[Rfam]
RNA sequence: UAUCACAAGCAGAAGCACCCGCUUCUCACCUGAUUGACACAUGUUUGUAGUUGACAGGUUGACCGUACAUUUAUUUUUUCAUGCAAAUGUUCGCAGUGUGGGUGUUUUAUAUGCCCACACUUUUUGUUUGCC
Numbered sequence: 001u002a003u004c005a006c007a008a009g010c011a012g013a014a015g016c017a018c019c020c021g022c023u024u025c026u027c028a029c030c031u032g033a034u035u036g037a038c039a040c041a042u043g044u045u046u047g048u049a050g051u052u053g054a055c056a057g058g059u060u061g062a063c064c065g066u067a068c069a070u071u072u073a074u075u076u077u078u079u080c081a082u083g084c085a086a087a088u089g090u091u092c093g094c095a096g097u098g099u100g101g102g103u104g105u106u107u108u109a110u111a112u113g114c115c116c117a118c119a120c121u122u123u124u125u126g127u128u129u130g131c132c
Stems, first nucleotide, its partner, number of pairs: 011026006028059003036052003039048002097119009